[Rfam]
Nucleotides: 099
Base pairs, nucleotide, nucleotide: 006068007067008066009065010064015030016029017028018027019026031058032057033056036054037053038052039050040049045093070083071082072081073080
Number, partner (000 for none) and nucleotide at each position: 001000c002000u003000u004000a005000a006068u007067u008066a009065u010064c011000a012000a013000g014000a015030a016029u017028c018027u019026c020000c021000a022000u023000a024000a025000a026019g027018a028017g029016a030015u031058a032057g033056c034000a035000a036054c037053c038052u039050g040049c041000a042000c043000u044000a045093a046000c047000a048000a049040g050039c051000a052038a053037g054036g055000u056033g057032c058031u059000a060000a061000a062000g063000g064010g065009a066008u067007a068006a069000g070083c071082c072081a073080a074000u075000u076000g077000g078000a079000u080073u081072u082071g083070g084000a085000a086000a087000c088000a089000a090000c091000g092000u093045u094000a095000c096000c097000c098000c099000a

Shown here is a 99-nucleotide sequence from Arenibacter certesii, a member of the family "SAM-I/IV (S-adenosyl methionine) riboswitch aptamer". NCBI's taxonomy places the organism under Bacteria, Pseudomonadati, Bacteroidota, Flavobacteriaceae, Arenibacter. For this family Rfam cites "The aptamer core of SAM-IV riboswitches mimics the ligand-binding site of SAM-I riboswitches" (Weinberg et al., RNA, 2008). The match comes from Rfam's covariance-model search (56 bits).